Rfam assigns this 76-nucleotide RNA from Oryzomonas rubra to the family "c-di-GMP-I riboswitch aptamer". Taxonomically the source falls in Oryzomonas (Bacteria, Pseudomonadati, Geobacterales, Geobacteraceae).
RNA sequence: AGACGAUAAUGCUAAACCAUCCGCGAGGAUGGGACAGAAAAUCCAUGGGUCUCACCGAGACAGCCGGAUUGCCGAA
Numbered sequence: 001a002g003a004c005g006a007u008a009a010u011g012c013u014a015a016a017c018c019a020u021c022c023g024c025g026a027g028g029a030u031g032g033g034a035c036a037g038a039a040a041a042u043c044c045a046u047g048g049g050u051c052u053c054a055c056c057g058a059g060a061c062a063g064c065c066g067g068a069u070u071g072c073c074g075a076a
Stems, first nucleotide, its partner, number of pairs: 012037002017032006040070004046066003049061005